Manganese Mn2+ riboswitch aptamer (yybP-ykoY): a 173-nucleotide sequence from Hahella chejuensis. The base pairs follow the family's consensus structure.
[Rfam]
RNA sequence: CCCGGCGUCACUGGGGAGUAGCCUCUCUUCGCCCUGAAGAGGUUUGCGUCAACAUACUUGGCCCACAGGCCAUGGCGUAAACGGUUCCAUAACUUGGCAAGACCUUUGACUAUGCCGCACCGGUUGGGCCGGGGCGUGGCGUAGUCAUAUGGUUAAUCCGGCCCAGGAGAUUU
Dot-bracket structure: .........................(((.........))).((((((((((.......(((((....)))))))))))))))((((.(..............................................................................).)))).
Record summary
The organism belongs to Hahella chejuensis, within Bacteria. This RNA was originally discovered in E. coli during a large scale screen and was named SraF. The family was later found to exist upstream of related families of protein genes in many bacteria, including the the yybP and ykoK genes in B. subtilis.